The family of this 154-nucleotide RNA sequence from Pedosphaera parvula is "c-di-AMP riboswitch aptamer (ydaO/yuaA leader)".
Rfam describes the family as follows. This family represents a conserved RNA structure found upstream of the ydaO and yuaA genes in Bacillus subtilis and related genes in other bacteria.
RNA sequence: GUUCUUUGUCUGCUUAAUGGUCUGACCUGUUCAGGCCAGCGGGGAACCCAGAUUUUCCGGUAAAACGGAUUGGGGCUUACGGUGCCUGCGGCAUCGGGAACACUUAGUGGUUCCAGCCCGACAGCUAACCUCGUGUGCGUAAACAUUAAGGGCA
Numbered sequence: 001g002u003u004c005u006u007u008g009u010c011u012g013c014u015u016a017a018u019g020g021u022c023u024g025a026c027c028u029g030u031u032c033a034g035g036c037c038a039g040c041g042g043g044g045a046a047c048c049c050a051g052a053u054u055u056u057c058c059g060g061u062a063a064a065a066c067g068g069a070u071u072g073g074g075g076c077u078u079a080c081g082g083u084g085c086c087u088g089c090g091g092c093a094u095c096g097g098g099a100a101c102a103c104u105u106a107g108u109g110g111u112u113c114c115a116g117c118c119c120g121a122c123a124g125c126u127a128a129c130c131u132c133g134u135g136u137g138c139g140u141a142a143a144c145a146u147u148a149a150g151g152g153c154a
Stems, first nucleotide, its partner, number of pairs: 011139003018038008039134006049072002073119003081095004098113004